[Rfam]
RNA sequence: CUGGUGCGAUGAUUAUAAACACAAAUUCCUCGUUCUGAAUGCUGUGGAAAUUUGGCAUGACAGACUCCUUAUACACCCAUAGAAUAUGAGCACC
Numbered sequence: 001c002u003g004g005u006g007c008g009a010u011g012a013u014u015a016u017a018a019a020c021a022c023a024a025a026u027u028c029c030u031c032g033u034u035c036u037g038a039a040u041g042c043u044g045u046g047g048a049a050a051u052u053u054g055g056c057a058u059g060a061c062a063g064a065c066u067c068c069u070u071a072u073a074c075a076c077c078c079a080u081a082g083a084a085u086a087u088g089a090g091c092a093c094c
Base pairs, nucleotide, nucleotide: 003094004093005092006091
This 94-nucleotide RNA sequence from Cocos nucifera belongs to the Rfam family "Small nucleolar RNA snoR8a". The family has 7 seed sequences and 956 matches in Rfam 15.1. The family's consensus secondary structure was predicted with WAR. The source organism's lineage runs through Eukaryota, Magnoliopsida, Arecaceae, Arecoideae and Cocos. A reference for the family is Brown et al. (2001), "Multiple snoRNA gene clusters from Arabidopsis", RNA.